[Rfam]
RNA sequence: GUAGGAUAUGGAGACAUGGUCCCGACAACCAUUGGAGGAAAGAUUGUGGGGUCUCUCUGCGCAAUUGCUGGUGUGCUGACUAUUGCCCUUCCCGUACCUGUCAUCGUAUCAAAC
Dot-bracket structure: ((..(.(((((.((((.(..(...............((.(.........(...........)...........).))................)..).)))).))))).)..))
RNA: Potassium channel RNA editing signal